[Rfam]
RNA sequence: AAGGAGGAAGUCGAAAAUCCAUAAAAGAGUAGACA
Numbered sequence: 001a002a003g004g005a006g007g008a009a010g011u012c013g014a015a016a017a018u019c020c021a022u023a024a025a026a027g028a029g030u031a032g033a034c035a
Stems, first nucleotide, its partner, number of pairs: 003020003010034003